About this RNA:
This 47-nucleotide RNA sequence from Sphingobium yanoikuyae belongs to the Rfam family "chrB-b RNA". By type it is a cis-regulatory element. The family's consensus secondary structure is taken from published work. The organism belongs to Sphingobium yanoikuyae, within Bacteria.
[Rfam]
RNA sequence: ACGGGCCGUGCGGGCGCCCGUUCAGGCGAUGAUCGUCCAAGUUCCGC
Numbered sequence: 001a002c003g004g005g006c007c008g009u010g011c012g013g014g015c016g017c018c019c020g021u022u023c024a025g026g027c028g029a030u031g032a033u034c035g036u037c038c039a040a041g042u043u044c045c046g047c
Base pairs, nucleotide, nucleotide: 001021002020003019004018005017006016010047011046012045013044014043025037026036027035028034029033